[Rfam]
RNA sequence: GGCCUUUUCAUUGCGCGGCAACGCCCCUAUAUGCCGAAUUGCCGGUUUCGACCGGCUAUGGCGAUAAAGGGUGUCGUAGACUAGAUGCAGCGGACCCGGGGGCAGUACCCGGCGGCUCCACCAUAAACCCCGGCGACGGGGCUUCUGACGGGGCCGAACCAGGAUCGACGUGUAUUGAAAGGCGAUGUCUUUCGCUCGGAAUGGGACCACCGUGACGGCCCAUACACAAGUGCCAACGAUAACGAAGCACUCGCUAUUGCGGCGUAACCCCAAGGCUUAACGGCCUAAGGUUAUUCUAAAAUGCGCGGUUGGCCCGCACCGGGCAACAGAAGCGGAGUCC
Numbered sequence: 001g002g003c004c005u006u007u008u009c010a011u012u013g014c015g016c017g018g019c020a021a022c023g024c025c026c027c028u029a030u031a032u033g034c035c036g037a038a039u040u041g042c043c044g045g046u047u048u049c050g051a052c053c054g055g056c057u058a059u060g061g062c063g064a065u066a067a068a069g070g071g072u073g074u075c076g077u078a079g080a081c082u083a084g085a086u087g088c089a090g091c092g093g094a095c096c097c098g099g100g101g102g103c104a105g106u107a108c109c110c111g112g113c114g115g116c117u118c119c120a121c122c123a124u125a126a127a128c129c130c131c132g133g134c135g136a137c138g139g140g141g142c143u144u145c146u147g148a149c150g151g152g153g154c155c156g157a158a159c160c161a162g163g164a165u166c167g168a169c170g171u172g173u174a175u176u177g178a179a180a181g182g183c184g185a186u187g188u189c190u191u192u193c194g195c196u197c198g199g200a201a202u203g204g205g206a207c208c209a210c211c212g213u214g215a216c217g218g219c220c221c222a223u224a225c226a227c228a229a230g231u232g233c234c235a236a237c238g239a240u241a242a243c244g245a246a247g248c249a250c251u252c253g254c255u256a257u258u259g260c261g262g263c264g265u266a267a268c269c270c271c272a273a274g275g276c277u278u279a280a281c282g283g284c285c286u287a288a289g290g291u292u293a294u295u296c297u298a299a300a301a302u303g304c305g306c307g308g309u310u311g312g313c314c315c316g317c318a319c320c321g322g323g324c325a326a327c328a329g330a331a332g333c334g335g336a337g338u339c340c
Base pairs, nucleotide, nucleotide: 041056042055043054044053045052060196061195062194063193064192070189071188072187074185075184076183077182086174087173088172090171091170092169096112097111098110099109100108113156114155115154116153117152118151119150197212198211199210202222203221204220207218208217306321307320308319309318312338313337315335